Rfam assigns this 59-nucleotide sequence from Cutibacterium avidum to the family "Actino-pnp RNA". Pairs were carried over by alignment from the consensus structure, which is taken from published work. The organism belongs to Cutibacterium avidum, within Bacteria. The family's RNA type in Rfam is cis-regulatory element.
[Rfam]
RNA sequence: AUGGGUCCUCGGUAGUGGCCACCGGGGCACGGUCCCGGCGGCUUCGAUCGAAGACCGGU
Number, nucleotide and partner (000 for none) at each position: 001a059002u058003g000004g056005g055006u054007c053008c000009u051010c050011g049012g048013u047014a000015g000016u000017g043018g042019c041020c040021a000022c038023c037024g036025g035026g034027g033028c032029a000030c000031g000032g028033u027034c026035c025036c024037g023038g022039c000040g020041g019042c018043u017044u000045c000046g000047a013048u012049c011050g010051a009052a000053g007054a006055c005056c004057g000058g002059u001